The record is a 147-nucleotide sequence from Nicotiana tabacum, which matches "small nucleolar RNA snoR135" in Rfam. It is annotated as an H/ACA-box small nucleolar RNA. The family's consensus secondary structure was predicted with RNAalifold.

[Rfam]
RNA sequence: AGUGCAGAGAUUGUGUGUAUCGGCUUUGUGCUACAUAAUGCACUUUGAACGAAAGAGUUCUCUGCCAUAUUGAUAAUAUGGGCAAGAUGGGCAGUUGUUUUUCAUCUUUGUUGGUUGAAAAUUUCAACAAUCAUCUAACCCACACCU
Number, nucleotide and partner (000 for none) at each position: 001a000002g000003u000004g065005c064006a063007g062008a061009g060010a059011u000012u000013g000014u000015g043016u042017g041018u040019a039020u038021c000022g000023g000024c000025u000026u000027u000028g000029u000030g000031c000032u000033a000034c000035a000036u000037a000038a020039u019040g018041c017042a016043c015044u000045u000046u000047g000048a000049a000050c000051g000052a000053a000054a000055g000056a000057g000058u000059u010060c009061u008062c007063u006064g005065c004066c000067a000068u000069a000070u000071u000072g000073a000074u000075a000076a000077u000078a000079u000080g141081g140082g139083c000084a000085a136086g135087a134088u133089g132090g131091g000092c000093a000094g128095u127096u126097g125098u000099u000100u000101u000102u000103c000104a000105u000106c000107u000108u000109u000110g000111u000112u000113g000114g000115u000116u000117g000118a000119a000120a000121a000122u000123u000124u000125c097126a096127a095128c094129a000130a000131u090132c089133a088134u087135c086136u085137a000138a000139c082140c081141c080142a000143c000144a000145c000146c000147u000
Gene Ontology terms of the family: RNA processing and nucleolus.